[Rfam]
RNA sequence: AUAAACACGAUGAUUAAGAAAGUAUGUAUUUCAAAAAUCUUGAGAAGAGAAGUUCCGUCACCGGCUGAAAGCGGGCGCUUGAUUGGAAAUACAGAAGUUCGCUUAGGAGUGGUUUUGCUGAACCUUUUACAGUAGGCAAAAACGGGUUGGCUUUCGUUAAAGGGCUUUUGAGUGUCUGCGCAGGUUUGCGCAGAAAUCAGGGUGGUACCGCGUUAGAGAUAAAGUCUUUCGUCCCUUGA
Numbered sequence: 001a002u003a004a005a006c007a008c009g010a011u012g013a014u015u016a017a018g019a020a021a022g023u024a025u026g027u028a029u030u031u032c033a034a035a036a037a038u039c040u041u042g043a044g045a046a047g048a049g050a051a052g053u054u055c056c057g058u059c060a061c062c063g064g065c066u067g068a069a070a071g072c073g074g075g076c077g078c079u080u081g082a083u084u085g086g087a088a089a090u091a092c093a094g095a096a097g098u099u100c101g102c103u104u105a106g107g108a109g110u111g112g113u114u115u116u117g118c119u120g121a122a123c124c125u126u127u128u129a130c131a132g133u134a135g136g137c138a139a140a141a142a143c144g145g146g147u148u149g150g151c152u153u154u155c156g157u158u159a160a161a162g163g164g165c166u167u168u169u170g171a172g173u174g175u176c177u178g179c180g181c182a183g184g185u186u187u188g189c190g191c192a193g194a195a196a197u198c199a200g201g202g203u204g205g206u207a208c209c210g211c212g213u214u215a216g217a218g219a220u221a222a223a224g225u226c227u228u229u230c231g232u233c234c235c236u237u238g239a
Base pairs, nucleotide, nucleotide: 007110008109015105016104017103018102025093026092027091028090029089030088040082041081042080051079052078053077055075056074113141114140115139116138117137118136119135143156144155145154175194176193177192178191179190180189181188199236200235201234202233210232211231212230